Nucleotides: 063
Base pairs, nucleotide, nucleotide: 003041004040005039007038008037010035011034012033013032014031015030016029017028
Number, partner (000 for none) and nucleotide at each position: 001000g002000u003041c004040c005039g006000a007038g008037a009000a010035c011034c012033g013032u014031g015030a016029g017028g018000a019000a020000a021000c022000g023000u024000c025000u026000c027000c028017c029016c030015u031014u032013g033012c034011g035010g036000a037008u038007c039005c040004g041003g042000c043000u044000a045000a046000u047000u048000u049000a050000a051000a052000a053000a054000c055000c056000a057000g058000a059000a060000g061000g062000a063000g
Rfam assigns this 63-nucleotide sequence to the family "L20-Deltaproteobacteria ribosomal protein leader". For this family Rfam cites "Discovery of 20 novel ribosomal leader candidates in bacteria and archaea" (Eckert and Weinberg, BMC Microbiol, 2020). The base pairs follow the family's consensus structure, which is taken from published work.